RNA sequence: CUUGAUCGACCCCAGCCACAGCGGCUUGGCCCGGUCCUUGCCGUAGGUGGCGAGCAGGGCCUGCGCCUC
Number, nucleotide and partner (000 for none) at each position: 001c000002u000003u000004g000005a000006u000007c000008g000009a000010c000011c000012c000013c000014a026015g025016c024017c023018a000019c000020a000021g000022c000023g017024g016025c015026u014027u000028g000029g064030c063031c000032c059033g000034g000035u000036c000037c054038u053039u052040g000041c050042c049043g048044u000045a000046g000047g000048u043049g042050g041051c000052g039053a038054g037055c000056a000057g000058g000059g032060c000061c000062u000063g030064c029065g000066c000067c000068u000069c000

The record is a 69-nucleotide RNA from Kutzneria viridogrisea, which matches "ASpks TB sRNA" in Rfam.
Taxonomically the source falls in Kutzneria viridogrisea (Bacteria, Bacillati, Pseudonocardiales, Pseudonocardiaceae).
The family's consensus secondary structure is taken from published work.
It is annotated as an antisense RNA.